[Rfam]
RNA sequence: UUGUUUAAGGGAUGAACAAGCCCUUGAUAAUUGAAUUCAUUCAUCUCUUGUCACCAUCACAGUGUUUUUGUUUUGCUUAUCAUUAUCGGAUGGUACAAUU
Numbered sequence: 001u002u003g004u005u006u007a008a009g010g011g012a013u014g015a016a017c018a019a020g021c022c023c024u025u026g027a028u029a030a031u032u033g034a035a036u037u038c039a040u041u042c043a044u045c046u047c048u049u050g051u052c053a054c055c056a057u058c059a060c061a062g063u064g065u066u067u068u069u070g071u072u073u074u075g076c077u078u079a080u081c082a083u084u085a086u087c088g089g090a091u092g093g094u095a096c097a098a099u100u
Stems, first nucleotide, its partner, number of pairs: 037093005050080002053077001055075002
The record is a 100-nucleotide RNA sequence from Capsicum annuum, which matches "Small nucleolar RNA snoR99" in Rfam.
Gene Ontology terms of the family: nucleolus and RNA processing.
On this family, see Marker et al., Curr Biol 2002: "Experimental RNomics: identification of 140 candidates for small non-messenger RNAs in the plant Arabidopsis thaliana".
The source organism's lineage runs through Eukaryota, Magnoliopsida, eudicotyledons, asterids and Capsicum.
By type it is an H/ACA-box small nucleolar RNA.